Background
Small nucleolar RNA SNORA8: a 133-nucleotide RNA sequence from Tychaedon coryphoeus. The family is grouped with related families in Rfam's "SNORA8 clan". From the family's description: ACA8 is a member of the H/ACA class of snoRNA that guide the sites of modification of uridines to pseudouridines. Its family is annotated with nucleolus and RNA processing in the Gene Ontology. The family's consensus secondary structure was predicted with RNAfold. The family's RNA type in Rfam is H/ACA-box small nucleolar RNA.
RNA sequence: GGUGUUGCAGUAUCUGCACCCAGCAUCCUUCUGUGGGAUGUUCAAAAAGCAGCACUACACCAGUGCAGCAUUUUGCAUCCUUGGUUUUCAUUCUGCUGUGUCUGUUAAGCCUGAUAUUUUUAGUCUUUUAACU
Numbered sequence: 001g002g003u004g005u006u007g008c009a010g011u012a013u014c015u016g017c018a019c020c021c022a023g024c025a026u027c028c029u030u031c032u033g034u035g036g037g038a039u040g041u042u043c044a045a046a047a048a049g050c051a052g053c054a055c056u057a058c059a060c061c062a063g064u065g066c067a068g069c070a071u072u073u074u075g076c077a078u079c080c081u082u083g084g085u086u087u088u089c090a091u092u093c094u095g096c097u098g099u100g101u102c103u104g105u106u107a108a109g110c111c112u113g114a115u116a117u118u119u120u121u122a123g124u125c126u127u128u129u130a131a132c133u
Stems, first nucleotide, its partner, number of pairs: 002055006013048001015046001016041003020037002022032002059121001062118003066113003075101004